Rfam assigns this 178-nucleotide RNA from Nodularia spumigena to the family "Antisense RNA which regulates isiA expression". For this family Rfam cites "An internal antisense RNA regulates expression of the photosynthesis gene isiA" (Duhring et al., Proc Natl Acad Sci U S A, 2006).
RNA sequence: AGUAGCCAAAAAUUGUCAUCGGCUCCAAAUUGGGAUUACUAAUCAGGCGAACAUCACCAAAAUUCGGGUCAUAAACUCCGCCAAAAAACAUCGCCUUUAGCACUAAUAGAAAUGCACCCAAACCCAGAAAAAUCAAGUGAUGACCUAAAAUCAAACCCAACUGCUGAGGAUCAUUCCA
Number, nucleotide and partner (000 for none) at each position: 001a000002g000003u000004a000005g000006c000007c000008a000009a000010a000011a000012a000013u000014u000015g000016u000017c000018a000019u000020c000021g000022g000023c000024u000025c000026c000027a000028a000029a000030u000031u000032g000033g000034g000035a000036u000037u000038a000039c000040u000041a000042a000043u000044c000045a000046g000047g000048c000049g000050a000051a000052c000053a000054u000055c000056a000057c000058c000059a000060a000061a000062a000063u000064u000065c000066g000067g000068g000069u000070c000071a000072u000073a000074a000075a000076c000077u000078c000079c000080g000081c000082c000083a000084a000085a000086a000087a000088a000089c000090a000091u000092c000093g000094c000095c000096u000097u000098u000099a000100g000101c000102a000103c000104u000105a000106a000107u000108a000109g000110a000111a000112a000113u000114g000115c000116a000117c000118c000119c000120a000121a000122a000123c000124c000125c000126a000127g000128a000129a000130a000131a000132a000133u000134c000135a000136a175137g174138u173139g172140a171141u170142g000143a000144c169145c168146u167147a000148a165149a000150a000151u000152c000153a000154a000155a000156c000157c000158c000159a000160a000161c000162u000163g000164c000165u148166g000167a146168g145169g144170a141171u140172c139173a138174u137175u136176c000177c000178a000